[Rfam]
RNA sequence: GCGGUUGCUAUGAUUAUACAAAUUCCUCGUCUUGACUUGCUAAUGCUAUUGCAUGACCAGGACUCCAUAUACACCCAUAGAAUAUGAGCAUC
Numbered sequence: 001g002c003g004g005u006u007g008c009u010a011u012g013a014u015u016a017u018a019c020a021a022a023u024u025c026c027u028c029g030u031c032u033u034g035a036c037u038u039g040c041u042a043a044u045g046c047u048a049u050u051g052c053a054u055g056a057c058c059a060g061g062a063c064u065c066c067a068u069a070u071a072c073a074c075c076c077a078u079a080g081a082a083u084a085u086g087a088g089c090a091u092c
Stems, first nucleotide, its partner, number of pairs: 003092002006090002
Shown here is a 92-nucleotide RNA sequence from Coptis chinensis, a member of the family "Small nucleolar RNA snoR8a". It is annotated as a C/D-box small nucleolar RNA. The organism belongs to Coptis, within Eukaryota. It scores 68 bits against the family's covariance model. For this family Rfam cites "Multiple snoRNA gene clusters from Arabidopsis" (Brown et al., RNA, 2001). Rfam links the family to the GO terms RNA processing and nucleolus.